[Rfam]
RNA: ASpks TB sRNA
Organism: Streptomyces albiflaviniger
RNA sequence: CUUCACCGAGCCCAGCCAGAGCGGUUCGUCCUCGGUGUGCUCCUGGCCGUAGGUGGCGAGCAGCGCCUGCGCCUC
Numbered sequence: 001c002u003u004c005a006c007c008g009a010g011c012c013c014a015g016c017c018a019g020a021g022c023g024g025u026u027c028g029u030c031c032u033c034g035g036u037g038u039g040c041u042c043c044u045g046g047c048c049g050u051a052g053g054u055g056g057c058g059a060g061c062a063g064c065g066c067c068u069g070c071g072c073c074u075c
Stems, first nucleotide, its partner, number of pairs: 014026004031071001033069001038065002043060002047056003